[Rfam]
About this RNA
A member of the RNA family "Small nucleolar RNA snoR74" from Camellia sinensis, 132 nucleotides long. NCBI's taxonomy places the organism under Eukaryota, Euphyllophyta, Mesangiospermae, asterids, Camellia. Rfam links the family to the GO terms nucleolus and RNA processing. It is annotated as an H/ACA-box small nucleolar RNA. For this family Rfam cites "Experimental RNomics: identification of 140 candidates for small non-messenger RNAs in the plant Arabidopsis thaliana" (Marker et al., Curr Biol, 2002). It scores 120 bits against the family's covariance model.

RNA sequence: AAAAAAGCAGGGGCCUGUUGCCUUUUUGUGGACAGAUCUCUCGUAAACUUCAGGGAAAUCAUUUUUUCAUCAUUAUUGGGUGAACCUCUUGAUUGAUUAAUGAAUGAAGGUUCAGUAAAUGAUGGGACAUUA
Dot-bracket structure: ....(((...((..(((((...........)))))..))........)))...............(((((((((......(((((((....................)))))))...)))))))))......